[Rfam]
RNA sequence: UGGUGUCCCUCACCCAGCCCCGAAGACCCCAGGCGGGCGAGGGAGGAGUCAGAGCGACC
Numbered sequence: 001u002g003g004u005g006u007c008c009c010u011c012a013c014c015c016a017g018c019c020c021c022g023a024a025g026a027c028c029c030c031a032g033g034c035g036g037g038c039g040a041g042g043g044a045g046g047a048g049u050c051a052g053a054g055c056g057a058c059c
Base pairs, nucleotide, nucleotide: 006044007043008042009041010040011039013037014036015035018032025059028056030054
RNA: Antizyme RNA frameshifting stimulation element
Organism: Phyllostomus discolor